[Rfam]
A member of the RNA family "glmS glucosamine-6-phosphate activated ribozyme aptamer" from Turicibacter sp. HGF1, 163 nucleotides long. The organism belongs to Turicibacter, within Bacteria. The base pairs follow the family's consensus structure, which is taken from published work. It is annotated as a riboswitch. Rfam describes the family as follows. This entry contains a glucosamine-6-phosphate activated ribozyme that is found in the mRNA for GlmS. GlmS is an enzyme that uses fructose-6-phosphate and glutamine to generate glucosamine-6-phosphate.
RNA sequence: UAUUCAUAUUAAGCGCCAGAGCUGUGUUUUAGGGUAGGAGCAGCUGACGAGGUGAAGGUUAAUCGAUUUUUCGGCGGAUGCCUUCCGGCUGGAUAUCUCAGUCGUAGUCUUCAAACAAAACUAAGAGGUAACUCUUACGACAAAAUUGAAGAAAAAGAUAAAU
Numbered sequence: 001u002a003u004u005c006a007u008a009u010u011a012a013g014c015g016c017c018a019g020a021g022c023u024g025u026g027u028u029u030u031a032g033g034g035u036a037g038g039a040g041c042a043g044c045u046g047a048c049g050a051g052g053u054g055a056a057g058g059u060u061a062a063u064c065g066a067u068u069u070u071u072c073g074g075c076g077g078a079u080g081c082c083u084u085c086c087g088g089c090u091g092g093a094u095a096u097c098u099c100a101g102u103c104g105u106a107g108u109c110u111u112c113a114a115a116c117a118a119a120a121c122u123a124a125g126a127g128g129u130a131a132c133u134c135u136u137a138c139g140a141c142a143a144a145a146u147u148g149a150a151g152a153a154a155a156a157g158a159u160a161a162a163u
Stems, first nucleotide, its partner, number of pairs: 020045006027038001029036001054085005063074004086104006108152006122137006
Dot-bracket structure: ...................((((((.(.(......).).))))))........(((((....((((....))))......)))))((((((.......))))))...((((((........((((((....)))))).........))))))...........